[Rfam]
RNA sequence: UUUCUCAUCUGACUACCACUUUGGACCUUUACAACAGGUUUUAGGGGUUAUGCUUUUGGGACAGAUAAACUCUGCUAUGAUCUGAAGAAGGCGGGUUUUUGUGUCUUCCUAUAUACAAUGAAUAUGCAGAAAGGAAAAAA
Numbered sequence: 001u002u003u004c005u006c007a008u009c010u011g012a013c014u015a016c017c018a019c020u021u022u023g024g025a026c027c028u029u030u031a032c033a034a035c036a037g038g039u040u041u042u043a044g045g046g047g048u049u050a051u052g053c054u055u056u057u058g059g060g061a062c063a064g065a066u067a068a069a070c071u072c073u074g075c076u077a078u079g080a081u082c083u084g085a086a087g088a089a090g091g092c093g094g095g096u097u098u099u100u101g102u103g104u105c106u107u108c109c110u111a112u113a114u115a116c117a118a119u120g121a122a123u124a125u126g127c128a129g130a131a132a133g134g135a136a137a138a139a140a
Stems, first nucleotide, its partner, number of pairs: 004060004016047002019044001074127002076124002095110001
The family of this 140-nucleotide RNA sequence from Chrysochloris asiatica is "Small nucleolar RNA SNORA29". It is annotated as an H/ACA-box small nucleolar RNA. ACA29 is a member of the H/ACA class of snoRNA that guide the sites of modification of uridines to pseudouridines. Gene Ontology terms of the family: RNA processing and nucleolus. The organism belongs to Chrysochloris, within Eukaryota. The family is grouped with related families in Rfam's "SNORA20 clan". Pairs were carried over by alignment from the consensus structure, which was predicted with PFOLD.